[Rfam]
RNA sequence: UGAUCCCAAGGAAGGGAUGAUGUCCCAGUUGAGACUCAAGAAAAGGAUUCUGAGCCUCAGAGCUUUGAAGGAGCCGCUUGGUCCCUGACCUUCCUUGAGGCAAA
Numbered sequence: 001u002g003a004u005c006c007c008a009a010g011g012a013a014g015g016g017a018u019g020a021u022g023u024c025c026c027a028g029u030u031g032a033g034a035c036u037c038a039a040g041a042a043a044a045g046g047a048u049u050c051u052g053a054g055c056c057u058c059a060g061a062g063c064u065u066u067g068a069a070g071g072a073g074c075c076g077c078u079u080g081g082u083c084c085c086u087g088a089c090c091u092u093c094c095u096u097g098a099g100g101c102a103a104a
Stems, first nucleotide, its partner, number of pairs: 009095007

The record is a 104-nucleotide RNA sequence from Equus caballus, which matches "Small nucleolar RNA SNORD124" in Rfam. Taxonomically the source falls in Equus (Eukaryota, Metazoa, Theria, Laurasiatheria). Pairs were carried over by alignment from the consensus structure, which was predicted with WAR. Rfam 15.1 lists 191 matches to the family in 183 species.